[Rfam]
RNA sequence: UUGUUAAUGCUAAUCGUGAUAGGGGUUUUUAUUUUUAACUGACUCCUACAUAUUAGCAUUAGCAC
Numbered sequence: 001u002u003g004u005u006a007a008u009g010c011u012a013a014u015c016g017u018g019a020u021a022g023g024g025g026u027u028u029u030u031a032u033u034u035u036u037a038a039c040u041g042a043c044u045c046c047u048a049c050a051u052a053u054u055a056g057c058a059u060u061a062g063c064a065c
Base pairs, nucleotide, nucleotide: 004062005061006060007059008058009057010056011055012054013053014052020048021047022046023045025043026042027041
Shown here is a 65-nucleotide RNA from Sphenodon punctatus, a member of the family "mir-155 microRNA precursor family". The family has 25 seed sequences and 647 matches in Rfam 15.1. Rfam links the family to the GO terms miRNA-mediated post-transcriptional gene silencing and RISC complex.